This 59-nucleotide sequence from Arthrobacter woluwensis belongs to the Rfam family "msiK RNA". The family has 120 seed sequences and 1,374 matches in Rfam 15.1. By type it is a cis-regulatory element. It scores 59 bits against the family's covariance model. Pairs were carried over by alignment from the consensus structure, which is taken from published work. Lineage of the source: Bacteria > Bacillati > Actinomycetes > Micrococcaceae > Arthrobacter.

[Rfam]
RNA sequence: AAUACACACCAUUCACUACGGAUCGUUCGGCACGUACCUGCCGAUGAAGGGACACGAUA
Numbered sequence: 001a002a003u004a005c006a007c008a009c010c011a012u013u014c015a016c017u018a019c020g021g022a023u024c025g026u027u028c029g030g031c032a033c034g035u036a037c038c039u040g041c042c043g044a045u046g047a048a049g050g051g052a053c054a055c056g057a058u059a
Stems, first nucleotide, its partner, number of pairs: 009051002012048004027044006